Rfam assigns this 106-nucleotide RNA from Methylotenera sp. to the family "Guanidine-I riboswitch aptamer". This family represents a conserved RNA structure found upstream of the ykkC and yxkD genes in Bacillus subtilis and related genes in other bacteria. The function of this family is unclear although it has been suggested that it may function to switch on efflux pumps and detoxification systems in response to harmful environmental molecules. The literature on the family includes a 2017 paper in RNA by Battaglia et al., "Structural basis for guanidine sensing by the ykkC family of riboswitches". A search with the family's covariance model found it, with a score of 90 bits. Gene Ontology term of the family: regulation of gene expression.
RNA sequence: CAAAAAGAUAACUAGGGUUCCGAUUUCAGUUUAUUUGAAGUGUCUGGUCCAAGAGUUGUCGGCCACAAGCAAUAUGGCUACACGGAGGGAUAAAAGCCCGGGAGAC
Numbered sequence: 001c002a003a004a005a006a007g008a009u010a011a012c013u014a015g016g017g018u019u020c021c022g023a024u025u026u027c028a029g030u031u032u033a034u035u036u037g038a039a040g041u042g043u044c045u046g047g048u049c050c051a052a053g054a055g056u057u058g059u060c061g062g063c064c065a066c067a068a069g070c071a072a073u074a075u076g077g078c079u080a081c082a083c084g085g086a087g088g089g090a091u092a093a094a095a096g097c098c099c100g101g102g103a104g105a106c
Stems, first nucleotide, its partner, number of pairs: 007060006015050002020047002022044001023041006061079005067073001081101001083104001087099003